[Rfam]
RNA sequence: GGGGCGUCUAGGCCGGCCAGCCGAAAAGGAGGACUCCGCCCUCCCUGGCGCCCCACCACCAGCGG
Numbered sequence: 001g002g003g004g005c006g007u008c009u010a011g012g013c014c015g016g017c018c019a020g021c022c023g024a025a026a027a028g029g030a031g032g033a034c035u036c037c038g039c040c041c042u043c044c045c046u047g048g049c050g051c052c053c054c055a056c057c058a059c060c061a062g063c064g065g
Stems, first nucleotide, its partner, number of pairs: 001054008011022003028044005037065001
Source information
Shown here is a 65-nucleotide RNA sequence from Lichenibacterium minor, a member of the family "int-alpA RNA". Pairs were carried over by alignment from the consensus structure, which is taken from published work. The family's RNA type in Rfam is small RNA. Taxonomically the source falls in Lichenibacterium (Bacteria, Pseudomonadota, Hyphomicrobiales, Lichenihabitantaceae).